[Rfam]
RNA sequence: UAUUGAAGGUCUGUGGUUGUAAGUCCAUGCCAGUCGCAGGCAAAAGGACCCACGUAAGAUAGUUAAAAGAACUAUUGAUCAUGGUGCGGCUUAGAGGUAAGUCCUGCCGGUAAACCGAGAGGGGUAGUAGUGAAAGUAACCCUGAGCGAACCCUCCAGCAGGCGAGUGUGGGGUAAAAAACCAGGUCAGCUUCAUGUA
Numbered sequence: 001u002a003u004u005g006a007a008g009g010u011c012u013g014u015g016g017u018u019g020u021a022a023g024u025c026c027a028u029g030c031c032a033g034u035c036g037c038a039g040g041c042a043a044a045a046g047g048a049c050c051c052a053c054g055u056a057a058g059a060u061a062g063u064u065a066a067a068a069g070a071a072c073u074a075u076u077g078a079u080c081a082u083g084g085u086g087c088g089g090c091u092u093a094g095a096g097g098u099a100a101g102u103c104c105u106g107c108c109g110g111u112a113a114a115c116c117g118a119g120a121g122g123g124g125u126a127g128u129a130g131u132g133a134a135a136g137u138a139a140c141c142c143u144g145a146g147c148g149a150a151c152c153c154u155c156c157a158g159c160a161g162g163c164g165a166g167u168g169u170g171g172g173g174u175a176a177a178a179a180a181c182c183a184g185g186u187c188a189g190c191u192u193c194a195u196g197u198a
Stems, first nucleotide, its partner, number of pairs: 004194005011189003014183005027169003030040001032091007049084002054079001057076002063070001082176001103162005108117003121155004130147002136140001
The family of this 198-nucleotide RNA sequence from Alkaliphilus peptidifermentans is "raiA RNA". It scores 179 bits against the family's covariance model. Lineage of the source: Bacteria > Bacillati > Natronincolaceae > Alkaliphilus > Alkaliphilus peptidifermentans. The family's RNA type in Rfam is riboswitch. Pairs were carried over by alignment from the consensus structure, which is taken from published work.